[Rfam]
RNA sequence: UAACCCUUUCCAUAAGGAAAGGUUGAACAGUUAGAAGUCAGCAGAUGCCAUAGUACCUGAGUAGAGGACGCUUGAAAAGGGAAGGGC
Numbered sequence: 001u002a003a004c005c006c007u008u009u010c011c012a013u014a015a016g017g018a019a020a021g022g023u024u025g026a027a028c029a030g031u032u033a034g035a036a037g038u039c040a041g042c043a044g045a046u047g048c049c050a051u052a053g054u055a056c057c058u059g060a061g062u063a064g065a066g067g068a069c070g071c072u073u074g075a076a077a078a079g080g081g082a083a084g085g086g087c
Stems, first nucleotide, its partner, number of pairs: 001025002005022007037046003047087003056080003
Record summary
Shown here is an 87-nucleotide RNA from Polycladospora coralii, a member of the family "Group II catalytic intron D1-D4-1". The base pairs follow the family's consensus structure. Rfam describes the family as follows. Group II introns are found in rRNA, tRNA and mRNA of organelles in fungi, plants and protists, and also in mRNA in bacteria. For this family Rfam cites "The ins and outs of group II introns" (Bonen and Vogel, Trends Genet, 2001). Rfam 15.1 lists 2,508 matches to the family in 1,144 species.